[Rfam]
This 128-nucleotide RNA sequence from Notechis scutatus belongs to the Rfam family "Small nucleolar RNA SNORA55". Rfam describes the family as follows. ACA55 is a member of the H/ACA class of snoRNA that guide the sites of modification of uridines to pseudouridines. Rfam links the family to the GO terms nucleolus and RNA processing. The family's RNA type in Rfam is H/ACA-box small nucleolar RNA. The source organism's lineage runs through Eukaryota, Vertebrata, Teleostomi, Sauria and Notechis. The family has 29 seed sequences and 1,476 matches in Rfam 15.1.

RNA sequence: GCACCUGAAUCUUUCCCAAUCCUGGCUGUGCAGUGCAGGCCUGGGGACAAAUGGUGCUACAGAAACGCACAGCAAAUCCAGGCAAAUUCUCUCAUAAAGAAACUUGUCUCUACAGCUUUGCAACAUUG
Dot-bracket structure: (((((.......((((((..((...............))..)))))).....))))).........(((.((.......((((((.((((.......))).).))))))......)).))).......